Annotation
Small nucleolar RNA SNORA47: a 135-nucleotide RNA from Sparus aurata. The base pairs follow the family's consensus structure, which was predicted with WAR. The literature on the family includes a 2001 paper in EMBO J by Huttenhofer et al., "RNomics: an experimental approach that identifies 201 candidates for novel, small, non-messenger RNAs in mouse". Its family is annotated with RNA processing and nucleolus in the Gene Ontology. The organism belongs to Sparus, within Eukaryota.
RNA sequence: UGGAGGACUGAGAAGGUUGAGCAGCUUGUGUUGUGCUACUACAACUGGUUAUAACCUCCAAGAGUAACAAACAAACUACACAAAUUUCAUGGCUCUGUCCAAAGCAGAGCUGACAUGUGUGUUUGUGGACAAAAU
Dot-bracket structure: .(((((........((((.((.(((.........))).))..))))........)))))...................(((..(...((......((((............))))..))...).)))........
Numbered sequence: 001u002g003g004a005g006g007a008c009u010g011a012g013a014a015g016g017u018u019g020a021g022c023a024g025c026u027u028g029u030g031u032u033g034u035g036c037u038a039c040u041a042c043a044a045c046u047g048g049u050u051a052u053a054a055c056c057u058c059c060a061a062g063a064g065u066a067a068c069a070a071a072c073a074a075a076c077u078a079c080a081c082a083a084a085u086u087u088c089a090u091g092g093c094u095c096u097g098u099c100c101a102a103a104g105c106a107g108a109g110c111u112g113a114c115a116u117g118u119g120u121g122u123u124u125g126u127g128g129a130c131a132a133a134a135u
Stems, first nucleotide, its partner, number of pairs: 002059005015046004020040002023037003079127003084123001088119002096115004